RNA sequence: UCUAAUAUAUGCCAAACCUGUUGCGAAACAGGGACGGAAAGCCACGGGUCUCAUGAAGAUAGCCGGGUUGCCAGA
Numbered sequence: 001u002c003u004a005a006u007a008u009a010u011g012c013c014a015a016a017c018c019u020g021u022u023g024c025g026a027a028a029c030a031g032g033g034a035c036g037g038a039a040a041g042c043c044a045c046g047g048g049u050c051u052c053a054u055g056a057a058g059a060u061a062g063c064c065g066g067g068u069u070g071c072c073a074g075a
Stems, first nucleotide, its partner, number of pairs: 012037002017032006040069004045065003048060003051056001

Rfam assigns this 75-nucleotide RNA sequence from Sulfurovum sp. NBC37-1 to the family "c-di-GMP-I riboswitch aptamer". The source organism's lineage runs through Bacteria, Pseudomonadati, Campylobacterota, Epsilonproteobacteria and Sulfurovum. Rfam 15.1 lists 5,092 matches to the family in 1,772 species. GEMM was predicted in a large-scale screen for bacterial structured RNA regulatory elements.